[Rfam]
This 174-nucleotide sequence from Scophthalmus maximus belongs to the Rfam family "Small nucleolar RNA SNORD97". Taxonomically the source falls in Scophthalmus (Eukaryota, Vertebrata, Clupeocephala, Euacanthomorphacea). A search with the family's covariance model found it, with a score of 67 bits. The family has 20 seed sequences and 639 matches in Rfam 15.1.
RNA sequence: AUGCCCACUGAUUAUAAAAAGACGCGUUAUUCUGAGGAAUACAACCUGCCACCAGUCUUUCUUCUUCCUUUUACUCUCUCUUAGAUCUCCUCUCCAUCUUUCCUCACCUCUCUCUCCUCUCCCCUUUCAACCGGUGGCUGGUCCGCUGACUGCGAUUAUGAGAUAUGAGGGCAU
Numbered sequence: 001a002u003g004c005c006c007a008c009u010g011a012u013u014a015u016a017a018a019a020a021g022a023c024g025c026g027u028u029a030u031u032c033u034g035a036g037g038a039a040u041a042c043a044a045c046c047u048g049c050c051a052c053c054a055g056u057c058u059u060u061c062u063u064c065u066u067c068c069u070u071u072u073a074c075u076c077u078c079u080c081u082u083a084g085a086u087c088u089c090c091u092c093u094c095c096a097u098c099u100u101u102c103c104u105c106a107c108c109u110c111u112c113u114c115u116c117c118u119c120u121c122c123c124c125u126u127u128c129a130a131c132c133g134g135u136g137g138c139u140g141g142u143c144c145g146c147u148g149a150c151u152g153c154g155a156u157u158a159u160g161a162g163a164u165a166u167g168a169g170g171g172c173a174u
Base pairs, nucleotide, nucleotide: 001174002173003172004171005170006169035062036061037060038059039058041056
The family's consensus secondary structure was predicted with WAR.